This 92-nucleotide sequence from Kineobactrum salinum belongs to the Rfam family "t44 RNA". The source organism's lineage runs through Bacteria, Pseudomonadati, Gammaproteobacteria, Halieaceae and Kineobactrum.
RNA sequence: GCAAAGAGAACCCAAUGACGCACACAUACCGAAACCUGCGCCAGGGUGCCGGCCGCGGCUGGUUUGACGCAUGGGGUAUGUGGAGGAUUAAC
Numbered sequence: 001g002c003a004a005a006g007a008g009a010a011c012c013c014a015a016u017g018a019c020g021c022a023c024a025c026a027u028a029c030c031g032a033a034a035c036c037u038g039c040g041c042c043a044g045g046g047u048g049c050c051g052g053c054c055g056c057g058g059c060u061g062g063u064u065u066g067a068c069g070c071a072u073g074g075g076g077u078a079u080g081u082g083g084a085g086g087a088u089u090a091a092c
Stems, first nucleotide, its partner, number of pairs: 023082008035073001037071004042066002048063005